[Rfam]
RNA: glmS glucosamine-6-phosphate activated ribozyme aptamer
Organism: Alteribacter lacisalsi
RNA sequence: CUGAAUUUAAAAGCGCCUGAACUAACCGGAGGAUCGGACACGCUCCGUUUAGUUGACGAGGAGGAGGUUUAUCGAAGUUUCGGCGGAUGCCUCCCGGUUGCUCAUCACAACCGAAAGCCUGCAAGCCUAAAACAGAGAGGCGACUCUCUGAACAAAAGCUGCGGCGGUGAUGAU
Dot-bracket structure: ...................((((((.(.(((...........))).).))))))........(((((....((((....))))......)))))((((((.......)))))).....(((((.(.......(((((((....)))))))........))))))..........